A member of the RNA family "epsC RNA" from Domibacillus epiphyticus, 106 nucleotides long. The family has 30 seed sequences and 450 matches in Rfam 15.1. The match comes from Rfam's covariance-model search (52 bits). NCBI's taxonomy places the organism under Bacteria, Bacillota, Bacilli, Bacillaceae, Domibacillus. The family's consensus secondary structure is taken from published work.
[Rfam]
RNA sequence: CGGUAAAGUCUCCUCAUACUAUGGAGGCAUUCGGCUACACGGUGGAUGAUGUAGAUCUUAGACGCCUGUCGUCAAUCCUGCGGUGUGAGGGUGGGGUAGAUGCUAG
Number, nucleotide and partner (000 for none) at each position: 001c000002g000003g017004u016005a000006a000007a000008g028009u027010c026011u025012c024013c023014u000015c000016a004017u003018a000019c000020u000021a000022u000023g013024g012025a011026g010027g009028c008029a000030u089031u088032c087033g086034g084035c083036u082037a000038c080039a079040c000041g077042g000043u000044g058045g057046a056047u055048g000049a000050u000051g000052u000053a000054g000055a047056u046057c045058u044059u000060a000061g073062a072063c071064g070065c000066c000067u000068g000069u000070c064071g063072u062073c061074a000075a000076u000077c041078c000079u039080g038081c000082g036083g035084u034085g000086u033087g032088a031089g030090g000091g000092u106093g000094g104095g103096g000097u000098a000099g000100a000101u000102g000103c095104u094105a000106g092